[Rfam]
The record is a 71-nucleotide RNA sequence from Bastillevirus hoodyT, which matches "Pistol ribozyme" in Rfam. Its family is annotated with catalytic activity in the Gene Ontology. NCBI's taxonomy places the organism under Viruses, Duplodnaviria, Bastillevirinae, Bastillevirus, Bastillevirus hoodyT. A reference for the family is Teplova et al. (2020), "Crucial Roles of Two Hydrated Mg(2+) Ions in Reaction Catalysis of the Pistol Ribozyme", Angew Chem Int Ed Engl.
RNA sequence: ACUCGUGUGAGCGAGUAUAAACAGCCUUUAGGCUCACAGCGUUAGGGAGGGUUUCUCCUCUCUAGGUAGGA
Numbered sequence: 001a002c003u004c005g006u007g008u009g010a011g012c013g014a015g016u017a018u019a020a021a022c023a024g025c026c027u028u029u030a031g032g033c034u035c036a037c038a039g040c041g042u043u044a045g046g047g048a049g050g051g052u053u054u055c056u057c058c059u060c061u062c063u064a065g066g067u068a069g070g071a
Stems, first nucleotide, its partner, number of pairs: 001016004006038006025070003032040001042065010